[Rfam]
RNA sequence: GAAAUCCACUGGGGGCGCCGAUACGGCUGAGAUAGCAGAAGCUUGUCCCUUUUUACCUGAUCCGGGUUAUGCCGGCGUAGGGAAGUGCUGAUGAUAACAG
Numbered sequence: 001g002a003a004a005u006c007c008a009c010u011g012g013g014g015g016c017g018c019c020g021a022u023a024c025g026g027c028u029g030a031g032a033u034a035g036c037a038g039a040a041g042c043u044u045g046u047c048c049c050u051u052u053u054u055a056c057c058u059g060a061u062c063c064g065g066g067u068u069a070u071g072c073c074g075g076c077g078u079a080g081g082g083a084a085g086u087g088c089u090g091a092u093g094a095u096a097a098c099a100g
Stems, first nucleotide, its partner, number of pairs: 007087004011050004017027004034043003056081004062075004
The family of this 100-nucleotide RNA sequence from Jeotgalicoccus saudimassiliensis is "TPP riboswitch aptamer (THI element)". The match comes from Rfam's covariance-model search (74 bits).